[Rfam]
RNA sequence: AUCCAAGCCAUCUACAAAGCCAAACAAACAACUCUUUUCAAACUUUUCCCAAGUUUCCCAACCAAAUCUAUUCACCAUGAACCCCUGCUCCUGCACCUGCUGCUCCGGCAACUGCAACUCCUGCUCUUGCAGCAGCUGCACUGUAUGUCCACAUAUAUU
Numbered sequence: 001a002u003c004c005a006a007g008c009c010a011u012c013u014a015c016a017a018a019g020c021c022a023a024a025c026a027a028a029c030a031a032c033u034c035u036u037u038u039c040a041a042a043c044u045u046u047u048c049c050c051a052a053g054u055u056u057c058c059c060a061a062c063c064a065a066a067u068c069u070a071u072u073c074a075c076c077a078u079g080a081a082c083c084c085c086u087g088c089u090c091c092u093g094c095a096c097c098u099g100c101u102g103c104u105c106c107g108g109c110a111a112c113u114g115c116a117a118c119u120c121c122u123g124c125u126c127u128u129g130c131a132g133c134a135g136c137u138g139c140a141c142u143g144u145a146u147g148u149c150c151a152c153a154u155a156u157a158u159u
Stems, first nucleotide, its partner, number of pairs: 086110004093103003114139003123130002
RNA: A. fumigatus sRNA Afu_254
Organism: Penicillium salamii